[Rfam]
RNA sequence: AGCAAAGGUUCGCAGUCUAAGAACGCCGCGUCCUGCGGCAACGACUGCAUGACCGGCAUCCUGCCGG
Number, nucleotide and partner (000 for none) at each position: 001a000002g000003c000004a000005a000006a000007g000008g000009u000010u000011c000012g048013c047014a046015g045016u044017c043018u000019a000020a000021g000022a000023a000024c000025g039026c038027c037028g036029c035030g000031u000032c000033c000034u000035g029036c028037g027038g026039c025040a000041a000042c000043g017044a016045c015046u014047g013048c012049a000050u000051g000052a000053c067054c066055g065056g064057c063058a000059u000060c000061c000062u000063g057064c056065c055066g054067g053